[Rfam]
RNA: SmY spliceosomal RNA
Organism: Caenorhabditis auriculariae
RNA sequence: CGAAAAUCUAAAGAAUUCUCAGGGCCUUGCAUAAGACCCCAAGAUAAAUUUUGGGUACCCUUACUUUCAUGUAAGGGUA
Numbered sequence: 001c002g003a004a005a006a007u008c009u010a011a012a013g014a015a016u017u018c019u020c021a022g023g024g025c026c027u028u029g030c031a032u033a034a035g036a037c038c039c040c041a042a043g044a045u046a047a048a049u050u051u052u053g054g055g056u057a058c059c060c061u062u063a064c065u066u067u068c069a070u071g072u073a074a075g076g077g078u079a
Base pairs, nucleotide, nucleotide: 022039023038024037026035027034028033057078058077059076060075061074062073063072064071